[Rfam]
RNA sequence: CCCAACACCCAUUAAAGGAGUAGUUCCCCACCCCGGAACUACUUUACCAUAUUCUGAAUUC
Numbered sequence: 001c002c003c004a005a006c007a008c009c010c011a012u013u014a015a016a017g018g019a020g021u022a023g024u025u026c027c028c029c030a031c032c033c034c035g036g037a038a039c040u041a042c043u044u045u046a047c048c049a050u051a052u053u054c055u056g057a058a059u060u061c
Stems, first nucleotide, its partner, number of pairs: 017045011

Plastid-psbN 5UTR RNA: a 61-nucleotide RNA sequence from Arachis hypogaea.
The literature on the family includes a 2023 paper in Plant Commun by Richter et al., "Retrograde signaling in plants: A critical review focusing on the GUN pathway and beyond".
Rfam classes the family as a cis-regulatory element.
The base pairs follow the family's consensus structure, which was predicted with LocARNA.
The match comes from Rfam's covariance-model search (81 bits).